[Rfam]
RNA: SAM riboswitch aptamer (S box leader)
RNA sequence: CGCUCAUCCAGAGGGGCAGAGGGAUACGGCCCGAUGAAGCCCCGGCAACCCUCCAGCCGGUCUUGUCACGUUGAUGUGGCGAGGCUCCCGGCUCGGGAAGGUGCCAAAUCCGUCUCACGGCGAAGUGCGUCGUGAGGAAGAUGAGGA
Numbered sequence: 001c002g003c004u005c006a007u008c009c010a011g012a013g014g015g016g017c018a019g020a021g022g023g024a025u026a027c028g029g030c031c032c033g034a035u036g037a038a039g040c041c042c043c044g045g046c047a048a049c050c051c052u053c054c055a056g057c058c059g060g061u062c063u064u065g066u067c068a069c070g071u072u073g074a075u076g077u078g079g080c081g082a083g084g085c086u087c088c089c090g091g092c093u094c095g096g097g098a099a100g101g102u103g104c105c106a107a108a109u110c111c112g113u114c115u116c117a118c119g120g121c122g123a124a125g126u127g128c129g130u131c132g133u134g135a136g137g138a139a140g141a142u143g144a145g146g147a
Base pairs, nucleotide, nucleotide: 003145004144005143006142007141008140013043014042015041016040017039021032022031023030026113027112028111029110044105045104046103047102049101050100051097052096053095109139114136115135116134117133118132119131120130121129122128